A member of the RNA family "5' ureB small RNA" from Burkholderiales bacterium GJ-E10, 291 nucleotides long. It scores 98 bits against the family's covariance model. The source organism's lineage runs through Bacteria, Pseudomonadati, Pseudomonadota, Betaproteobacteria and Burkholderiales. Pairs were carried over by alignment from the consensus structure, which was predicted with mfold. Rfam links the family to the GO term negative regulation of gene expression. The literature on the family includes a 2013 paper in J Bacteriol by Wen et al., "Helicobacter pylori 5'ureB-sRNA, a cis-encoded antisense small RNA, negatively regulates ureAB expression by transcription termination".

[Rfam]
RNA sequence: CUUCUUCGAUCUGCUGGGGACAGAUGAAAUGGAUGUGGCUGUCGAUCGCCCCCGGCGUCAGGAUCAUUCCUUCGCCGGCGAUGAUCUCCGUGCCCGGCCCGAUCACGAUGUCGACCCCUGGUUGGACGUUCGGGUUUCCGGCUUUGCCGAUUGCGGCGAUGCGCUGCCCCCGGAUUCCGACGUCGGCCUUCACGAUGCCCCAGUGAUCGAGGAUCAGCGCGUUCGUGAUCACGACGUCCAUCGCCCCUUCGGCGCGGGUGGCCUGGCUCUGGCCCAUGCCAUCGCGGAUAG
Numbered sequence: 001c002u003u004c005u006u007c008g009a010u011c012u013g014c015u016g017g018g019g020a021c022a023g024a025u026g027a028a029a030u031g032g033a034u035g036u037g038g039c040u041g042u043c044g045a046u047c048g049c050c051c052c053c054g055g056c057g058u059c060a061g062g063a064u065c066a067u068u069c070c071u072u073c074g075c076c077g078g079c080g081a082u083g084a085u086c087u088c089c090g091u092g093c094c095c096g097g098c099c100c101g102a103u104c105a106c107g108a109u110g111u112c113g114a115c116c117c118c119u120g121g122u123u124g125g126a127c128g129u130u131c132g133g134g135u136u137u138c139c140g141g142c143u144u145u146g147c148c149g150a151u152u153g154c155g156g157c158g159a160u161g162c163g164c165u166g167c168c169c170c171c172g173g174a175u176u177c178c179g180a181c182g183u184c185g186g187c188c189u190u191c192a193c194g195a196u197g198c199c200c201c202a203g204u205g206a207u208c209g210a211g212g213a214u215c216a217g218c219g220c221g222u223u224c225g226u227g228a229u230c231a232c233g234a235c236g237u238c239c240a241u242c243g244c245c246c247c248u249u250c251g252g253c254g255c256g257g258g259u260g261g262c263c264u265g266g267c268u269c270u271g272g273c274c275c276a277u278g279c280c281a282u283c284g285c286g287g288a289u290a291g
Stems, first nucleotide, its partner, number of pairs: 001291002005286001007284003012158005018076002022072002031052002035049001038047001040045001057069001077148002081144001083142001085140001090138001092135004096130003099125007107117001163273004170266004175261002177258002186220002189217002200209001224254002231249001234248001236246001
Dot-bracket structure: ((..(.(((..(((((.((..((.......((..(..(.(....).).).))....(...........).))..))((..(.(.(....(.((((((((((((((.(.........).)))))))..))).))))..).).).)..)).....)))))....((((...((((.((((.......((.((.........(........)......)).))...((.....(..(.(.........).))...))..)).)).))))...))))........))).)...))